This 332-nucleotide sequence from Jaculus jaculus belongs to the Rfam family "7SK RNA". The family's consensus secondary structure is taken from published work. On this family, see Wassarman and Steitz, Mol Cell Biol 1991: "Structural analyses of the 7SK ribonucleoprotein (RNP), the most abundant human small RNP of unknown function". Taxonomically the source falls in Jaculus (Eukaryota, Theria, Eutheria, Rodentia). Rfam classes the family as a non-coding RNA gene.

RNA sequence: GGAUGUGAGGGUCAUCUGGCUAUGACAUUUGUCACCCCAUUGAUUUCCAGGGUUGAUUAGGCUGAUCUGGCUGGCUAGGCGGGUGUCCCCUUCCUCCCUCACUGCUCCGCGUGCGUCCCUCUGGAAGCUGCACGCUCAGUCAAAGAGGAAGACCUUCCCUUUAUAGAGGAGGACUGGUCUUCUGUCAAGGGUAUACAAGUAGCUGCGCUCCCUUGGUAGAACCUCCAAACAAACUCUCAAGGUCCAUUUGUAGGAGAACUUAGGGUAGUCAAGCUUCCAAGACUGCAGACACAUCCAAAUGAGGUGCUGCAUGUGGCAGUCUGCCUUUGUUU
Numbered sequence: 001g002g003a004u005g006u007g008a009g010g011g012u013c014a015u016c017u018g019g020c021u022a023u024g025a026c027a028u029u030u031g032u033c034a035c036c037c038c039a040u041u042g043a044u045u046u047c048c049a050g051g052g053u054u055g056a057u058u059a060g061g062c063u064g065a066u067c068u069g070g071c072u073g074g075c076u077a078g079g080c081g082g083g084u085g086u087c088c089c090c091u092u093c094c095u096c097c098c099u100c101a102c103u104g105c106u107c108c109g110c111g112u113g114c115g116u117c118c119c120u121c122u123g124g125a126a127g128c129u130g131c132a133c134g135c136u137c138a139g140u141c142a143a144a145g146a147g148g149a150a151g152a153c154c155u156u157c158c159c160u161u162u163a164u165a166g167a168g169g170a171g172g173a174c175u176g177g178u179c180u181u182c183u184g185u186c187a188a189g190g191g192u193a194u195a196c197a198a199g200u201a202g203c204u205g206c207g208c209u210c211c212c213u214u215g216g217u218a219g220a221a222c223c224u225c226c227a228a229a230c231a232a233a234c235u236c237u238c239a240a241g242g243u244c245c246a247u248u249u250g251u252a253g254g255a256g257a258a259c260u261u262a263g264g265g266u267a268g269u270c271a272a273g274c275u276u277c278c279a280a281g282a283c284u285g286c287a288g289a290c291a292c293a294u295c296c297a298a299a300u301g302a303g304g305u306g307c308u309g310c311a312u313g314u315g316g317c318a319g320u321c322u323g324c325c326u327u328u329g330u331u332u
Base pairs, nucleotide, nucleotide: 001108002107003106005102006101007100008099009098010097011096014092018090019089024087025086026085027084028083029082030081031080032079033078035074036073037070038069039068042067043066044065045064047061048060116172117171118169119168120167121166122139124137125136127135128134140163142161147158148157149156202274203273204272208268209267211265212264213263214262215261216260223256224255225254226253229251230250231249232248233247297332298331299330301327302326303325304324305323306320307319308318309317310316
Dot-bracket structure: (((.(((((((..(...((....((((((((((.(((((..((((.((...........))..)))))))..))...)))))))))).)).)...)))))))...))).......(((((((.((.((.....)))).)(.(....(((......)))..).)..)))).)).............................(((...((.((((((......((((..(((((.............))))).))))...)))))).))...)))......................(((.((((((((((.....)))))..)))))..)))